[Rfam]
RNA sequence: AAGUCUUGAUCGGGAGAGACCAGCGUACGCUGGCGCCGAAGGGGCAUUACCCAGAAACUCUCAGGCAAAAGGACCGGUCAGGGGGC
Numbered sequence: 001a002a003g004u005c006u007u008g009a010u011c012g013g014g015a016g017a018g019a020c021c022a023g024c025g026u027a028c029g030c031u032g033g034c035g036c037c038g039a040a041g042g043g044g045c046a047u048u049a050c051c052c053a054g055a056a057a058c059u060c061u062c063a064g065g066c067a068a069a070a071g072g073a074c075c076g077g078u079c080a081g082g083g084g085g086c
Base pairs, nucleotide, nucleotide: 006081007080008079009078010077011076012075013074020033021032022031023030035066036065037064038062039061042060043059044058048053
The record is an 86-nucleotide RNA sequence from Duganella sp. Root198D2, which matches "Glycine riboswitch aptamer" in Rfam. The base pairs follow the family's consensus structure. Taxonomically the source falls in Duganella (Bacteria, Pseudomonadati, Pseudomonadota, Oxalobacteraceae). This family represents the bacterial glycine riboswitch. Glycine riboswitches usually consist of two metabolite-binding aptamers domains with similar structures in tandem. A search with the family's covariance model found it, with a score of 67 bits.